Notes:
Rfam assigns this 73-nucleotide RNA sequence from Cynoglossus semilaevis to the family "tRNA". Pairs were carried over by alignment from the consensus structure, which is taken from published work. The organism belongs to Cynoglossus, within Eukaryota. It is annotated as a transfer RNA.
[Rfam]
RNA sequence: GGUUCCAUAGUAUAGCUGUUAGCACACCUGCCUUGGAAGCAGGGAGUCCUGGGUUCGAUUCCCAGAGGAACCA
Numbered sequence: 001g002g003u004u005c006c007a008u009a010g011u012a013u014a015g016c017u018g019u020u021a022g023c024a025c026a027c028c029u030g031c032c033u034u035g036g037a038a039g040c041a042g043g044g045a046g047u048c049c050u051g052g053g054u055u056c057g058a059u060u061c062c063c064a065g066a067g068g069a070a071c072c073a
Base pairs, nucleotide, nucleotide: 001072002071003070004069005068006067010025011024013022027043028042029041030040031039049065050064051063052062053061